A member of the RNA family "throat-1 RNA", 305 nucleotides long. Rfam's curators put it in the seed alignment.

RNA sequence: CGAUUGUAUAGUUUCGUCUAGGGUUUCGUACAGCCAACGCAUAAAAUGCACGGGGAUUAAUUCUAUGGAUCUAUUUCAAAUAGAUUAACCCCUAAAGGGUAGAAGAUGUAGUGAAGCCCAUUCUGUUUAGCGAUGAAAUAACAGAUAAAUUAGCUACAAUGGGUAUGGUUUAAUCGCCGGAGUUAGAUUCCGGAUAGUUGCGAAAGUAACGGGAUUAUAUAGGUAUAUUAGCAAUAAUAUAACAAGUAGGGCAUGGAUUAAGACGCUUGAUAAUAUAUAUAGCUGUAGAAAGCUGACUUUAAAUA
Numbered sequence: 001c002g003a004u005u006g007u008a009u010a011g012u013u014u015c016g017u018c019u020a021g022g023g024u025u026u027c028g029u030a031c032a033g034c035c036a037a038c039g040c041a042u043a044a045a046a047u048g049c050a051c052g053g054g055g056a057u058u059a060a061u062u063c064u065a066u067g068g069a070u071c072u073a074u075u076u077c078a079a080a081u082a083g084a085u086u087a088a089c090c091c092c093u094a095a096a097g098g099g100u101a102g103a104a105g106a107u108g109u110a111g112u113g114a115a116g117c118c119c120a121u122u123c124u125g126u127u128u129a130g131c132g133a134u135g136a137a138a139u140a141a142c143a144g145a146u147a148a149a150u151u152a153g154c155u156a157c158a159a160u161g162g163g164u165a166u167g168g169u170u171u172a173a174u175c176g177c178c179g180g181a182g183u184u185a186g187a188u189u190c191c192g193g194a195u196a197g198u199u200g201c202g203a204a205a206g207u208a209a210c211g212g213g214a215u216u217a218u219a220u221a222g223g224u225a226u227a228u229u230a231g232c233a234a235u236a237a238u239a240u241a242a243c244a245a246g247u248a249g250g251g252c253a254u255g256g257a258u259u260a261a262g263a264c265g266c267u268u269g270a271u272a273a274u275a276u277a278u279a280u281a282g283c284u285g286u287a288g289a290a291a292g293c294u295g296a297c298u299u300u301a302a303a304u305a
Stems, first nucleotide, its partner, number of pairs: 001016003022035003053092003057088006064082003107158006120146002123144004177193005197210005224241007243269005280295005
Dot-bracket structure: (((..........))).....(((........))).................(((.((((((.(((.............))))))))).)))..............((((((.......((.((((..............))))))......))))))..................(((((.......)))))...(((((....))))).............(((((((....))))))).(((((.................)))))..........(((((......)))))..........
The family's RNA type in Rfam is small RNA.